[Rfam]
RNA sequence: UCCUUCUUUUUCACCACGGAUCUGUGCCCAGACGUCCUCUGCUUGCACGCAAGUUCAGAGUCGAUGACUGCGGCAGUUCGAUACAUCCUAUGGAGACAUCGCACUCUUCCUUUUGGAAUAUGGUGUCAAUUAUCCUAUCGACAGGUCCCAGAACAACCGGGCUCUUCCCGGGGAGAAGCUUGGUUCGCCGUCAAAAGCUGAGCCUCGUGGACCGGGAAUCCCAAGAACGUCAUAUUCCACUCCGUUGCCAGAGAUCGUCGAUCCAUGAGGCAGGGGCAAACCAUGACUGUCGUUACAUAC
Number, nucleotide and partner (000 for none) at each position: 001u000002c000003c000004u000005u000006c000007u000008u000009u000010u000011u000012c000013a000014c000015c000016a000017c000018g148019g147020a146021u145022c144023u143024g142025u141026g074027c073028c072029c070030a069031g068032a000033c066034g065035u064036c063037c060038u059039c058040u057041g056042c000043u053044u051045g050046c000047a000048c000049g000050c045051a044052a000053g043054u000055u000056c041057a040058g039059a038060g037061u000062c000063g036064a035065u034066g033067a000068c031069u030070g029071c000072g028073g027074c026075a000076g000077u000078u000079c000080g000081a000082u000083a000084c140085a000086u000087c000088c000089u000090a000091u128092g127093g126094a000095g124096a000097c122098a121099u120100c000101g000102c000103a000104c000105u000106c000107u000108u000109c000110c000111u000112u000113u000114u000115g000116g000117a000118a000119u000120a099121u098122g097123g000124u095125g000126u093127c092128a091129a000130u000131u000132a000133u000134c000135c000136u000137a000138u000139c000140g084141a025142c024143a023144g022145g021146u020147c019148c018149c000150a000151g000152a000153a000154c000155a000156a000157c000158c000159g000160g221161g220162c000163u000164c000165u000166u217167c216168c215169c214170g213171g212172g000173g000174a000175g000176a000177a000178g000179c000180u000181u000182g204183g203184u202185u201186c200187g198188c197189c000190g000191u000192c000193a000194a000195a000196a000197g188198c187199u000200g186201a185202g184203c183204c182205u000206c000207g000208u000209g000210g000211a000212c171213c170214g169215g168216g167217a166218a000219u000220c161221c160222c000223a000224a000225g000226a000227a293228c292229g287230u286231c285232a284233u283234a000235u000236u000237c000238c000239a000240c000241u000242c275243c274244g000245u272246u000247g271248c270249c269250a000251g000252a000253g263254a262255u261256c260257g000258u000259c000260g256261a255262u254263c253264c000265a000266u000267g000268a000269g249270g248271c247272a245273g000274g243275g242276g000277c000278a000279a000280a000281c000282c000283a233284u232285g231286a230287c229288u000289g000290u000291c000292g228293u227294u000295a000296c000297a000298u000299a000300c000

Shown here is a 300-nucleotide RNA from Leptographium clavigerum, a member of the family "A. fumigatus sRNA Afu_309". The family has 10 seed sequences and 663 matches in Rfam 15.1. Rfam classes the family as a small RNA. The match comes from Rfam's covariance-model search (126 bits).